A member of the RNA family "MIR6234 microRNA precursor family" from Setaria viridis, 145 nucleotides long. Rfam links the family to the GO terms RISC complex and miRNA-mediated post-transcriptional gene silencing. The family has 2 seed sequences and 141 matches in Rfam 15.1.
[Rfam]
RNA sequence: GUCUUUUCCAUGUGCAAGUGUGUUCCUCUGUUUGGCGCUAAAGGUUCAUGCUCUAAAUGAAACACUUCCAAGUGUUGUUGUUUCCUUAAGUAGUAUUCUUACCUUUAGCGUCAAGAGACGAACACACUUCCGCGUAGAAAGGGAU
Numbered sequence: 001g002u003c004u005u006u007u008c009c010a011u012g013u014g015c016a017a018g019u020g021u022g023u024u025c026c027u028c029u030g031u032u033u034g035g036c037g038c039u040a041a042a043g044g045u046u047c048a049u050g051c052u053c054u055a056a057a058u059g060a061a062a063c064a065c066u067u068c069c070a071a072g073u074g075u076u077g078u079u080g081u082u083u084c085c086u087u088a089a090g091u092a093g094u095a096u097u098c099u100u101a102c103c104u105u106u107a108g109c110g111u112c113a114a115g116a117g118a119c120g121a122a123c124a125c126a127c128u129u130c131c132g133c134g135u136a137g138a139a140a141g142g143g144a145u
Stems, first nucleotide, its partner, number of pairs: 002144006009137001014131001016129010027118003031115015048096004054090001059084001061082004065077001068074001